This 301-nucleotide RNA sequence from Ceratopteris richardii belongs to the Rfam family "RNase MRP". It scores 52 bits against the family's covariance model. Its Rfam clan is "RNaseP clan". About the family: RNase MRP is an enzymatically active ribonucleoprotein with two distinct roles in eukaryotes. In mitochondria it plays a direct role in the initiation of mitochondrial DNA replication. It is annotated as a ribozyme.
[Rfam]
RNA sequence: GGGCAUGGGAAGGGAGCGCUUCGACGAUUUGACUGCUUGCUAGUCGAUGUUGAGAGAAAGUCUCCGAGCUGUGUGUACGCUGUAAUGGCGUCCAUACUCCCAGAAAUGGGAUCCUGAAAGGGAUAAUGACUCCUGAUGUAGAAUGCUGGGUGGCCAUGCUCUUAGCUGAGAUGCGGUUGUGCGGAGCUUCGUAUGGUCACUCCAUUCUGCAGGAGUAGUUGGCUACAUCACAGUUAUGCGUUCACCUGUACGAGGUGGGUUCUCGUAUGGACAAACAGAACGGGGCUUAUCUUCCCUUGCC
Numbered sequence: 001g002g003g004c005a006u007g008g009g010a011a012g013g014g015a016g017c018g019c020u021u022c023g024a025c026g027a028u029u030u031g032a033c034u035g036c037u038u039g040c041u042a043g044u045c046g047a048u049g050u051u052g053a054g055a056g057a058a059a060g061u062c063u064c065c066g067a068g069c070u071g072u073g074u075g076u077a078c079g080c081u082g083u084a085a086u087g088g089c090g091u092c093c094a095u096a097c098u099c100c101c102a103g104a105a106a107u108g109g110g111a112u113c114c115u116g117a118a119a120g121g122g123a124u125a126a127u128g129a130c131u132c133c134u135g136a137u138g139u140a141g142a143a144u145g146c147u148g149g150g151u152g153g154c155c156a157u158g159c160u161c162u163u164a165g166c167u168g169a170g171a172u173g174c175g176g177u178u179g180u181g182c183g184g185a186g187c188u189u190c191g192u193a194u195g196g197u198c199a200c201u202c203c204a205u206u207c208u209g210c211a212g213g214a215g216u217a218g219u220u221g222g223c224u225a226c227a228u229c230a231c232a233g234u235u236a237u238g239c240g241u242u243c244a245c246c247u248g249u250a251c252g253a254g255g256u257g258g259g260u261u262c263u264c265g266u267a268u269g270g271a272c273a274a275a276c277a278g279a280a281c282g283g284g285g286c287u288u289a290u291c292u293u294c295c296c297u298u299g300c301c
Stems, first nucleotide, its partner, number of pairs: 002301004007296004014243006021054001022052004058288003062285004099110004113122003143205003148201002151199007164188003173182003245270002